The family of this 85-nucleotide RNA from Oryzias latipes is "mir-184 microRNA precursor family".
The literature on the family includes a 2005 paper in Genes Dev by Chen et al., "The developmental miRNA profiles of zebrafish as determined by small RNA cloning".
Rfam's curators put it in the seed alignment.
RNA sequence: UCACUCACAUCUCCUUAUCACUUUUCCAGCCCAGCUAUGUGGUCUGUAUUCGUUGGACGGAGAACUGAUAAGGGCAUGUGCAUGA
Number, nucleotide and partner (000 for none) at each position: 001u000002c000003a000004c000005u000006c000007a000008c000009a000010u000011c000012u074013c073014c072015u071016u070017a069018u068019c067020a066021c000022u064023u063024u062025u061026c060027c059028a000029g000030c056031c055032c000033a000034g000035c000036u000037a000038u000039g000040u000041g000042g000043u000044c000045u000046g000047u000048a000049u000050u000051c000052g000053u000054u000055g031056g030057a000058c000059g027060g026061a025062g024063a023064a022065c000066u020067g019068a018069u017070a016071a015072g014073g013074g012075c000076a000077u000078g000079u000080g000081c000082a000083u000084g000085a000